The family of this 143-nucleotide RNA from Caenorhabditis briggsae is "Caenorhabditis snoRNA ceN80". The family's RNA type in Rfam is H/ACA-box small nucleolar RNA. The source organism's lineage runs through Eukaryota, Opisthokonta, Eumetazoa, Nematoda and Caenorhabditis. Its family is annotated with nucleolus and RNA processing in the Gene Ontology. For this family Rfam cites "Systematic identification of non-coding RNA 2,2,7-trimethylguanosine cap structures in Caenorhabditis elegans" (Jia et al., BMC Mol Biol, 2007). Rfam 15.1 lists 11 matches to the family in 9 species. Rfam's curators put it in the seed alignment.
[Rfam]
RNA sequence: AAACCAUGUUUACUACUACUUGUCACCUCUCCCCUUGAGAUUUCGAGUAUUUUUGCGAUGCAUGGAAAAUGAAAUUUCAAAAAAUCUGACCAGGUUUCUUUCUAACCCUUAUAGCUAGAAAGUUACAAUGUUAGUUGACAAUU
Numbered sequence: 001a002a003a004c005c006a007u008g009u010u011u012a013c014u015a016c017u018a019c020u021u022g023u024c025a026c027c028u029c030u031c032c033c034c035u036u037g038a039g040a041u042u043u044c045g046a047g048u049a050u051u052u053u054u055g056c057g058a059u060g061c062a063u064g065g066a067a068a069a070u071g072a073a074a075u076u077u078c079a080a081a082a083a084a085u086c087u088g089a090c091c092a093g094g095u096u097u098c099u100u101u102c103u104a105a106c107c108c109u110u111a112u113a114g115c116u117a118g119a120a121a122g123u124u125a126c127a128a129u130g131u132u133a134g135u136u137g138a139c140a141a142u143u
Stems, first nucleotide, its partner, number of pairs: 004065006017049006028038002084136001086134005094126002098122007